[Rfam]
Rfam assigns this 110-nucleotide sequence from bacterium YEK0313 to the family "EcpR1". It is annotated as a small RNA. A reference for the family is Wilms et al. (2012), "Deep sequencing uncovers numerous small RNAs on all four replicons of the plant pathogen Agrobacterium tumefaciens", RNA Biol. Rfam links the family to the GO terms regulation of translation in response to stress, mRNA binding and negative regulation of cell cycle. Perviously named SmelC291, SmrC10, or Sra33. According to its overproduction phenotype it was renamed Elongated Cell Phenotype RNA1. Induced by stress,EcpR1 negatively regulates cell cycle master regulatory genes dnaA and gcrA at post-transcriptional level by base pairing between its strongly conserved GC-rich loop and the target mRNAs. It's regulation is hfq-independent but requires RNase E to regulate dnaA.
RNA sequence: AUACCCUGCGAAUGCUCAGGUCCGCCGCAUGUCCUGGGAUCGUGGGGUCGGCCGGUCGGACCGGGCAGGGAUGGCCUCUCCCUGUUGCGCCUUGUCCGGCCGGCCACCGU
Numbered sequence: 001a002u003a004c005c006c007u008g009c010g011a012a013u014g015c016u017c018a019g020g021u022c023c024g025c026c027g028c029a030u031g032u033c034c035u036g037g038g039a040u041c042g043u044g045g046g047g048u049c050g051g052c053c054g055g056u057c058g059g060a061c062c063g064g065g066c067a068g069g070g071a072u073g074g075c076c077u078c079u080c081c082c083u084g085u086u087g088c089g090c091c092u093u094g095u096c097c098g099g100c101c102g103g104c105c106a107c108c109g110u
Stems, first nucleotide, its partner, number of pairs: 003048008015038006050105011